[Rfam]
RNA sequence: UGUUGCAGUUUCGUUUUGUGACCGACACUAACGGGUAUUUUACAGGACAUACAGGAUUACUCGUUUUUGCGAUCACAAAUCCUGAAAUUGCAGCAA
Dot-bracket structure: ((((((((..(((.(((((((.((.((..((((((((....................))))))))..)))).)))))))...)))..)))))))).